Shown here is a 125-nucleotide RNA sequence from Clostridium beijerinckii, a member of the family "Ribosomal protein L10 leader". Pairs were carried over by alignment from the consensus structure, which was predicted with CMfinder. Taxonomically the source falls in Clostridium beijerinckii (Bacteria, Bacillati, Clostridia, Eubacteriales). It is annotated as a cis-regulatory leader. The sequence is in the family's curated seed alignment. Gene Ontology term of the family: regulation of gene expression.
[Rfam]
RNA sequence: AAAAAGAAAAUAUUUUUUCCGUAGACAGUGGGUGCGAAAGCGUAAAGUAUAACUGCCCGCCUAGGUAUAUAAUAGAUUGUAUUAUAGGCCUUCCAUGUCUGCGGAAGGUCUUUUUUAAUAAAAGA
Dot-bracket structure: ...........................((((((((....)).............))))))..........................((((((((.(....).))))))))...............